[Rfam]
RNA: Glycine riboswitch aptamer
RNA sequence: UGUCAGUUUGCGGGAGAGUGUCCUGUACAACAUUGUGCAGAGCCACCGAAGGGGAAAUCGCCCGAAAUCUCUCAGGUACCAAGAACCGCAAGCAGGUA
Numbered sequence: 001u002g003u004c005a006g007u008u009u010g011c012g013g014g015a016g017a018g019u020g021u022c023c024u025g026u027a028c029a030a031c032a033u034u035g036u037g038c039a040g041a042g043c044c045a046c047c048g049a050a051g052g053g054g055a056a057a058u059c060g061c062c063c064g065a066a067a068u069c070u071c072u073c074a075g076g077u078a079c080c081a082a083g084a085a086c087c088g089c090a091a092g093c094a095g096g097u098a
Base pairs, nucleotide, nucleotide: 006093007092008091009090010089011088012087013086020043021042023040024039025038026037045077046076047075048073049072052071053070054069058065059064